[Rfam]
RNA sequence: GUUUUUUUACGAAAUUGGUUUUCACAGUGAUUUUAUAGUAUAUUUAAAUAUAUGAGAUCAUUGUGAAAGCUGAUUUUGUUCC
Numbered sequence: 001g002u003u004u005u006u007u008u009a010c011g012a013a014a015u016u017g018g019u020u021u022u023c024a025c026a027g028u029g030a031u032u033u034u035a036u037a038g039u040a041u042a043u044u045u046a047a048a049u050a051u052a053u054g055a056g057a058u059c060a061u062u063g064u065g066a067a068a069g070c071u072g073a074u075u076u077u078g079u080u081c082c
Base pairs, nucleotide, nucleotide: 009079010078011077012076013075014074016072017071018070019069020068021067022066023065024064025063028060029059030058031057032056033055

Shown here is an 82-nucleotide sequence from Brassicogethes aeneus, a member of the family "bantam microRNA precursor family". The match comes from Rfam's covariance-model search (76 bits). On this family, see Weaver et al., Genome Biol 2007: "Computational and transcriptional evidence for microRNAs in the honey bee genome".